[Rfam]
RNA: mir-252 microRNA precursor family
RNA sequence: UGCUAAUUCUAAGUAGUAGUGCCGCAGGUAAUGGUAAUAACAUGUCUUACCUGAUCAUUGCUGCUUAAAACUAACA
Numbered sequence: 001u002g003c004u005a006a007u008u009c010u011a012a013g014u015a016g017u018a019g020u021g022c023c024g025c026a027g028g029u030a031a032u033g034g035u036a037a038u039a040a041c042a043u044g045u046c047u048u049a050c051c052u053g054a055u056c057a058u059u060g061c062u063g064c065u066u067a068a069a070a071c072u073a074a075c076a
Stems, first nucleotide, its partner, number of pairs: 001076002004073002007070001010067010025053006
Dot-bracket structure: ((.((.(..((((((((((.....((((((.................))))))....))))))))))..).)).))